mir-2807 microRNA precursor family: an 83-nucleotide sequence from Bombyx mori. Rfam links the family to the GO terms RISC complex and miRNA-mediated post-transcriptional gene silencing. The base pairs follow the family's consensus structure, which was predicted with RNAalifold. A search with the family's covariance model found it, with a score of 56 bits. For this family Rfam cites "Novel microRNAs in silkworm (Bombyx mori)" (Cai et al., Funct Integr Genomics, 2010).
[Rfam]
Nucleotides: 083
Stems, first nucleotide, its partner, number of pairs: 008077001010076007018068001020066009034052002039047001
Number, partner (000 for none) and nucleotide at each position: 001000u002000u003000a004000a005000c006000u007000c008077u009000a010076a011075u012074u013073u014072g015071u016070a017000u018068g019000g020066a021065g022064u023063u024062g025061g026060a027059a028058c029000a030000g031000c032000g033000c034052c035051c036000g037000u038000a039047g040000c041000g042000g043000c044000a045000a046000a047039c048000g049000u050000a051035g052034g053000c054000a055000a056000u057000g058028g059027u060026u061025c062024c063023a064022a065021c066020u067000c068018c069000a070016u071015a072014c073013a074012a075011a076010u077008g078000u079000g080000c081000u082000u083000a